[Rfam]
RNA sequence: CUUCGAUAAUAGCAAACCUCUCGAAAGAUAGGGACGCAAAGCCACGGGCCUAAUGUGUUAGUAUACGCAAUGGUGGCCGGGUUGCCGAA
Numbered sequence: 001c002u003u004c005g006a007u008a009a010u011a012g013c014a015a016a017c018c019u020c021u022c023g024a025a026a027g028a029u030a031g032g033g034a035c036g037c038a039a040a041g042c043c044a045c046g047g048g049c050c051u052a053a054u055g056u057g058u059u060a061g062u063a064u065a066c067g068c069a070a071u072g073g074u075g076g077c078c079g080g081g082u083u084g085c086c087g088a089a
Base pairs, nucleotide, nucleotide: 012037013036017032018031019030021028022027040083041082042081043080045079046078047077048074049073050072055068056067057066058065
The family of this 89-nucleotide RNA from Aneurinibacillus migulanus is "c-di-GMP-I riboswitch aptamer". The base pairs follow the family's consensus structure, which is taken from published work. NCBI's taxonomy places the organism under Bacteria, Bacillota, Bacilli, Paenibacillaceae, Aneurinibacillus.